[Rfam]
RNA sequence: UAAGCCCAAGGUCAAGUUGGAGAUGGUCAUCCAAGGUAAGUGGUGCCAAAGGCACCCGCCAUCUCCGCCAAAAGGGCUUGCCCUUGGGUGGAGGC
Numbered sequence: 001u002a003a004g005c006c007c008a009a010g011g012u013c014a015a016g017u018u019g020g021a022g023a024u025g026g027u028c029a030u031c032c033a034a035g036g037u038a039a040g041u042g043g044u045g046c047c048a049a050a051g052g053c054a055c056c057c058g059c060c061a062u063c064u065c066c067g068c069c070a071a072a073a074g075g076g077c078u079u080g081c082c083c084u085u086g087g088g089u090g091g092a093g094g095c
Stems, first nucleotide, its partner, number of pairs: 005088005010082003019066009040057001042056005067077003
RNA: DUF1874 RNA